This 87-nucleotide sequence from Litchfieldia stipae belongs to the Rfam family "c-di-GMP-I riboswitch aptamer". Gene Ontology term of the family: cyclic-di-GMP binding. The family's consensus secondary structure is taken from published work.
[Rfam]
RNA sequence: UAAUGAUAAUGGCAAAUCUAUUGAAAGAUAGAGACGCAAAGCUACGGGUCUAAAACUGUGAAAAGUCAUGAUCGCCGAGCUACCAAG
Number, nucleotide and partner (000 for none) at each position: 001u000002a000003a000004u000005g000006a000007u000008a000009a000010u000011g000012g037013c036014a000015a000016a000017u032018c031019u030020a029021u028022u027023g000024a000025a000026a000027g022028a021029u020030a019031g018032a017033g000034a000035c000036g013037c012038a000039a000040a081041g080042c079043u078044a000045c077046g076047g075048g072049u071050c070051u000052a000053a000054a000055a066056c065057u064058g000059u000060g000061a000062a000063a000064a057065g056066u055067c000068a000069u000070g050071a049072u048073c000074g000075c047076c046077g045078a043079g042080c041081u040082a000083c000084c000085a000086a000087g000